[Rfam]
Description
Glm Y RNA activator of glmS mRNA: a 149-nucleotide RNA sequence from Pseudescherichia vulneris. This family consists of a number of bacterial RNA genes of around 167 bases in length. The tke1 RNA gene is present in Escherichia coli, Shigella flexneri, Yersinia pestis and Salmonella species where it is found between the yfhK and purL genes. The function of this RNA is unknown. Clan: Glm clan. NCBI's taxonomy places the organism under Bacteria, Pseudomonadati, Enterobacterales, Enterobacteriaceae, Pseudescherichia vulneris.
RNA sequence: AGUGGCUCAUUCACCUUCUUAUGUCAGCCCCUUCGGGACGCGCUACAUAAACCCUGGAAUGACGCACAAACAGGUGCCUGCCGUCUCACUUCUGAUCAUAGCGUUGCUAUUUCAGGCCCGAGGCGAAACGUCGAGUAAGGCACCGCCUA
Numbered sequence: 001a002g003u004g005g006c007u008c009a010u011u012c013a014c015c016u017u018c019u020u021a022u023g024u025c026a027g028c029c030c031c032u033u034c035g036g037g038a039c040g041c042g043c044u045a046c047a048u049a050a051a052c053c054c055u056g057g058a059a060u061g062a063c064g065c066a067c068a069a070a071c072a073g074g075u076g077c078c079u080g081c082c083g084u085c086u087c088a089c090u091u092c093u094g095a096u097c098a099u100a101g102c103g104u105u106g107c108u109a110u111u112u113c114a115g116g117c118c119c120g121a122g123g124c125g126a127a128a129c130g131u132c133g134a135g136u137a138a139g140g141c142a143c144c145g146c147c148u149a
Stems, first nucleotide, its partner, number of pairs: 005065002007062006019050006026044003073144007082125005093114003128136002